[Rfam]
RNA sequence: AUCCUCGAGGGGCGUUGCGACAAGACUCACGGUCUUGCCAGGCUCGGGGCAUGGAUAGGUGGUAUCCACCUUGGAGAACGACGCUCACCACGA
Dot-bracket structure: ..((((((............((((((.....))))))......))))))............................................
Numbered sequence: 001a002u003c004c005u006c007g008a009g010g011g012g013c014g015u016u017g018c019g020a021c022a023a024g025a026c027u028c029a030c031g032g033u034c035u036u037g038c039c040a041g042g043c044u045c046g047g048g049g050c051a052u053g054g055a056u057a058g059g060u061g062g063u064a065u066c067c068a069c070c071u072u073g074g075a076g077a078a079c080g081a082c083g084c085u086c087a088c089c090a091c092g093a
Stems, first nucleotide, its partner, number of pairs: 003049006021037006